[Rfam]
RNA sequence: CUUGUGGAGUGUUAGACAAACCGUAGUAGCGAGCAAGUGGCGAGGCGGAACACGUAGAAGCAAGAA
Number, nucleotide and partner (000 for none) at each position: 001c064002u063003u062004g061005u060006g000007g000008a000009g053010u052011g051012u050013u049014a000015g000016a000017c000018a000019a000020a000021c048022c047023g046024u000025a000026g000027u000028a000029g041030c040031g000032a000033g038034c000035a000036a000037g000038u033039g000040g030041c029042g000043a000044g000045g000046c023047g022048g021049a013050a012051c011052a010053c009054g000055u000056a000057g000058a000059a000060g005061c004062a003063a002064g001065a000066a000
RNA: RAGATH-18 RNA
Organism: Savagea serpentis